This 106-nucleotide RNA sequence from Cajanus cajan belongs to the Rfam family "MIR162_1 microRNA precursor family". The family's consensus secondary structure was predicted with RNAalifold. The family is grouped with related families in Rfam's "MIR167 microRNA precursor clan". The match comes from Rfam's covariance-model search (101 bits).

RNA sequence: GGUGAAGUCACUGGAGGUAGCGGUUCAUCGAUCUCUUCCUGAACUUUGUUGUUGAACAUAACAACCAUGAAUCGAUCGAUAAACCUCUGCAUCCAGCCCUUACUAU
Numbered sequence: 001g002g003u004g005a006a007g008u009c010a011c012u013g014g015a016g017g018u019a020g021c022g023g024u025u026c027a028u029c030g031a032u033c034u035c036u037u038c039c040u041g042a043a044c045u046u047u048g049u050u051g052u053u054g055a056a057c058a059u060a061a062c063a064a065c066c067a068u069g070a071a072u073c074g075a076u077c078g079a080u081a082a083a084c085c086u087c088u089g090c091a092u093c094c095a096g097c098c099c100u101u102a103c104u105a106u
Base pairs, nucleotide, nucleotide: 013094014093015092018089019088020087022085023084024083025082027080028079029078030077031076032075033074036071037070038069